[Rfam]
RNA: TeloSII non coding RNA 33
Organism: Raphanus sativus
RNA sequence: GUUAUCCGCAUCAGCCAACUUCUGAAUAUAAAAGUUACUUUUACUCUUCAUCACUUAUUUACAACAACACAGGUACCAACAAUCCCACACUAAAGUCUCUGAUUCACAAUCACACCCAAAAUACAAACAAUUAAAAAUGAUUCUUUCAAAAAUUCAAGGUAAAAAUUUGCAAAUGUAUAUAUAUAUAAUUUAAACUACAGAAGCCUCCUUCUGAAGUUUCUGGUAGUUGAUUGAUAAGUACGUACGAGAAGGCCCACACCAAUGCCAAGACCAACACAGACCCCAAGUCCAAU
Numbered sequence: 001g002u003u004a005u006c007c008g009c010a011u012c013a014g015c016c017a018a019c020u021u022c023u024g025a026a027u028a029u030a031a032a033a034g035u036u037a038c039u040u041u042u043a044c045u046c047u048u049c050a051u052c053a054c055u056u057a058u059u060u061a062c063a064a065c066a067a068c069a070c071a072g073g074u075a076c077c078a079a080c081a082a083u084c085c086c087a088c089a090c091u092a093a094a095g096u097c098u099c100u101g102a103u104u105c106a107c108a109a110u111c112a113c114a115c116c117c118a119a120a121a122u123a124c125a126a127a128c129a130a131u132u133a134a135a136a137a138u139g140a141u142u143c144u145u146u147c148a149a150a151a152a153u154u155c156a157a158g159g160u161a162a163a164a165a166u167u168u169g170c171a172a173a174u175g176u177a178u179a180u181a182u183a184u185a186u187a188a189u190u191u192a193a194a195c196u197a198c199a200g201a202a203g204c205c206u207c208c209u210u211c212u213g214a215a216g217u218u219u220c221u222g223g224u225a226g227u228u229g230a231u232u233g234a235u236a237a238g239u240a241c242g243u244a245c246g247a248g249a250a251g252g253c254c255c256a257c258a259c260c261a262a263u264g265c266c267a268a269g270a271c272c273a274a275c276a277c278a279g280a281c282c283c284c285a286a287g288u289c290c291a292a293u
Base pairs, nucleotide, nucleotide: 011214012213013212014211023061024060025059026058027057028056034046096129098127100125101124102122103121104120136210137209139207140206143203144202145201146200154199157196158195173184174183175182176181216284219280220279221278222277223275224274226271227270228269230263231262232261233260238257239256242254245251